[Rfam]
RNA sequence: GGGUGUUCGCCUUACGAGCUUGGCGGGCAGGGUUCCAGCGCUGGUCGGGCCGCCAGCG
Numbered sequence: 001g002g003g004u005g006u007u008c009g010c011c012u013u014a015c016g017a018g019c020u021u022g023g024c025g026g027g028c029a030g031g032g033u034u035c036c037a038g039c040g041c042u043g044g045u046c047g048g049g050c051c052g053c054c055a056g057c058g
Stems, first nucleotide, its partner, number of pairs: 005028007039058007
nhaA-I RNA: a 58-nucleotide sequence from Altererythrobacter sp. Root672.
Rfam's curators write: Acidobacteria, Alphaproteobacteria, Betaproteobacteria and Gammaproteobacteria, Verrucomicrobia, cand. division NC10.
It scores 48 bits against the family's covariance model.